[Rfam]
RNA sequence: GGUCCCUUUUAAAGUGGUCCUGUGAGGCUGCCAAAGGGAGUACAUGGUUUCAUGCUAAAAUGAAACUGUUUAUUGUACCCUCUUUGUGCCUUGUCAGGUCAUAAAGAGGGUAUUUUUU
Numbered sequence: 001g002g003u004c005c006c007u008u009u010u011a012a013a014g015u016g017g018u019c020c021u022g023u024g025a026g027g028c029u030g031c032c033a034a035a036g037g038g039a040g041u042a043c044a045u046g047g048u049u050u051c052a053u054g055c056u057a058a059a060a061u062g063a064a065a066c067u068g069u070u071u072a073u074u075g076u077a078c079c080c081u082c083u084u085u086g087u088g089c090c091u092u093g094u095c096a097g098g099u100c101a102u103a104a105a106g107a108g109g110g111u112a113u114u115u116u117u118u
Stems, first nucleotide, its partner, number of pairs: 003039007014031006041072002044069010075113014
PyrR binding site: a 118-nucleotide RNA from Bacillus oleivorans. It is annotated as a cis-regulatory element. About the family: This family represents the PyrR binding site and terminator structure. This RNA structure is found upstream of a variety of genes involved in pyrimidine biosynthesis and transport. It scores 67 bits against the family's covariance model.